[Rfam]
RNA sequence: CUCGUCCGCCCCGUGGACGCCCCUGACCAUAAGGCCUCCGUCCCGGCUACCCUGACGGCGUGCGCUCUCCUCGGGAAGUCGUUCGGCACGCAUCCUGAGGUGACGCAAAGCCGACAGCCGUCGCAUCUGAGGGAGCCCUUCCAUG
Numbered sequence: 001c002u003c004g005u006c007c008g009c010c011c012c013g014u015g016g017a018c019g020c021c022c023c024u025g026a027c028c029a030u031a032a033g034g035c036c037u038c039c040g041u042c043c044c045g046g047c048u049a050c051c052c053u054g055a056c057g058g059c060g061u062g063c064g065c066u067c068u069c070c071u072c073g074g075g076a077a078g079u080c081g082u083u084c085g086g087c088a089c090g091c092a093u094c095c096u097g098a099g100g101u102g103a104c105g106c107a108a109a110g111c112c113g114a115c116a117g118c119c120g121u122c123g124c125a126u127c128u129g130a131g132g133g134a135g136c137c138c139u140u141c142c143a144u145g
Stems, first nucleotide, its partner, number of pairs: 061107004067100002070097001110124002113122003

Record summary: This 145-nucleotide RNA sequence from Streptomyces sp. 3214.6 belongs to the Rfam family "Streptomyces-metH RNA". The family's RNA type in Rfam is small RNA. It scores 98 bits against the family's covariance model.